[Rfam]
RNA sequence: CCCGCCGAGGGGCGCUGCAAGUCCGGAUCCCACCAUCGCGUGGCUCCCGGAAUCAGGCUCGGCAGGACCUACACGAACAACGGCGCCCGGUUUGG
Numbered sequence: 001c002c003c004g005c006c007g008a009g010g011g012g013c014g015c016u017g018c019a020a021g022u023c024c025g026g027a028u029c030c031c032a033c034c035a036u037c038g039c040g041u042g043g044c045u046c047c048c049g050g051a052a053u054c055a056g057g058c059u060c061g062g063c064a065g066g067a068c069c070u071a072c073a074c075g076a077a078c079a080a081c082g083g084c085g086c087c088c089g090g091u092u093u094g095g
Base pairs, nucleotide, nucleotide: 002065004063005062006061007060008059022051023050024049025048026047
This 95-nucleotide RNA from Lysobacter soli belongs to the Rfam family "SAH (S-adenosyl-L-homocysteine) riboswitch aptamer". It scores 51 bits against the family's covariance model. The family's consensus secondary structure is taken from published work.